[Rfam]
RNA sequence: CAAUGCCCUUGGUAUCUGACACAUGGCUUUUUUUUAGCUAUAUGCGGCAUGAAAUAUGGCAAAUAGCUUGGAGGAACGGAUCUUGUGACAUUGGUUGCUCCUUAAUUAGCCUCCAGUUACUAUAGCAGUUUACAUGC
Numbered sequence: 001c002a003a004u005g006c007c008c009u010u011g012g013u014a015u016c017u018g019a020c021a022c023a024u025g026g027c028u029u030u031u032u033u034u035u036a037g038c039u040a041u042a043u044g045c046g047g048c049a050u051g052a053a054a055u056a057u058g059g060c061a062a063a064u065a066g067c068u069u070g071g072a073g074g075a076a077c078g079g080a081u082c083u084u085g086u087g088a089c090a091u092u093g094g095u096u097g098c099u100c101c102u103u104a105a106u107u108a109g110c111c112u113c114c115a116g117u118u119a120c121u122a123u124a125g126c127a128g129u130u131u132a133c134a135u136g137c
Base pairs, nucleotide, nucleotide: 004061005060006059007058009056018048020046022044023043024042025041026038027037029036075130076129077128079126090117091116092115093114094113097110098109099108
This 137-nucleotide RNA from Miscanthus lutarioriparius belongs to the Rfam family "Small nucleolar RNA F1/F2/snoR5a". It is annotated as an H/ACA-box small nucleolar RNA. From the family's description: This family contains F1, F2 and snoR5a sequences, all of which are members of the the H/ACA class of snoRNA that guide the sites of modification of uridines to pseudouridines.